Betaproteobacteria-1 RNA: a 118-nucleotide RNA sequence from Vogesella sp. LIG4.
By type it is a small RNA.
RNA sequence: CGCCGGCGCGGACGAGGUGCUCACCACCAGCGCGCCGGGGAAACCGAUGCUGGGGGGAAGUUCUGAGACAUCCGGCGCGCAGGCGAAGACAGAAGCGCGGAACGAAAGUCUGUCGGGC
Numbered sequence: 001c002g003c004c005g006g007c008g009c010g011g012a013c014g015a016g017g018u019g020c021u022c023a024c025c026a027c028c029a030g031c032g033c034g035c036c037g038g039g040g041a042a043a044c045c046g047a048u049g050c051u052g053g054g055g056g057g058a059a060g061u062u063c064u065g066a067g068a069c070a071u072c073c074g075g076c077g078c079g080c081a082g083g084c085g086a087a088g089a090c091a092g093a094a095g096c097g098c099g100g101a102a103c104g105a106a107a108g109u110c111u112g113u114c115g116g117g118c
Stems, first nucleotide, its partner, number of pairs: 001040001003038008027053004044074001046072004060103004076099005088114006